Small Cajal body specific RNA 16: a 176-nucleotide RNA from Neodrepanis coruscans. The family has 37 seed sequences and 790 matches in Rfam 15.1. The literature on the family includes a 2002 paper in EMBO J by Darzacq et al., "Cajal body-specific small nuclear RNAs: a novel class of 2'-O-methylation and pseudouridylation guide RNAs". scaRNAs are a specific class of small nuclear RNAs which localise to the Cajal bodies and guide the modification of RNA polymerase II transcribed spliceosomal RNAs U1, U2, U4, U5 and U12. ACA47 belongs to the H/ACA box class of guide RNAs as it has the predicted hairpin-hinge-hairpin-tail structure, the conserved H/ACA-box motifs and is found associated with GAR1. ACA47 is predicted to guide the pseudouridylation of residue U5 of the U1 spliceosomal snRNA. Rfam classes the family as a small Cajal body RNA. The base pairs follow the family's consensus structure, which was predicted with RNAfold.
[Rfam]
RNA sequence: GUGGGCUGGGGAAGGGCUGCUGGGUGGUGGGGCCAGAGGGCCCGGCCUGUCCCUGCCAGUCUGACCCGUGCCCCAGAUCAGCUCCAGGUGGGCCCCGUGCCGGGCUCACCUGUGCAGUAACAGGUGUGAGCAUCCAUGAAGCGUUCUGAUGGUCAUGUAUGAUACUGCAAACAACA
Numbered sequence: 001g002u003g004g005g006c007u008g009g010g011g012a013a014g015g016g017c018u019g020c021u022g023g024g025u026g027g028u029g030g031g032g033c034c035a036g037a038g039g040g041c042c043c044g045g046c047c048u049g050u051c052c053c054u055g056c057c058a059g060u061c062u063g064a065c066c067c068g069u070g071c072c073c074c075a076g077a078u079c080a081g082c083u084c085c086a087g088g089u090g091g092g093c094c095c096c097g098u099g100c101c102g103g104g105c106u107c108a109c110c111u112g113u114g115c116a117g118u119a120a121c122a123g124g125u126g127u128g129a130g131c132a133u134c135c136a137u138g139a140a141g142c143g144u145u146c147u148g149a150u151g152g153u154c155a156u157g158u159a160u161g162a163u164a165c166u167g168c169a170a171a172c173a174a175c176a
Stems, first nucleotide, its partner, number of pairs: 003073004008067003015061004019056002022053001024052001026047003030043001032041003084103002087101004111171001113169007121161002127155003131151004138145002